[Rfam]
RNA: Enterobacterial sRNA STnc240
RNA sequence: CCCGGUUAGGGCAAAAUAGCCGUUCUGCAAAAAAUGCAUACUAACCGACGUUUAAGAGACGUCGGUUAUUUUUUUGC
Numbered sequence: 001c002c003c004g005g006u007u008a009g010g011g012c013a014a015a016a017u018a019g020c021c022g023u024u025c026u027g028c029a030a031a032a033a034a035u036g037c038a039u040a041c042u043a044a045c046c047g048a049c050g051u052u053u054a055a056g057a058g059a060c061g062u063c064g065g066u067u068a069u070u071u072u073u074u075u076g077c
Stems, first nucleotide, its partner, number of pairs: 011021001042068009
Dot-bracket structure: ..........(.........)....................(((((((((.........))))))))).........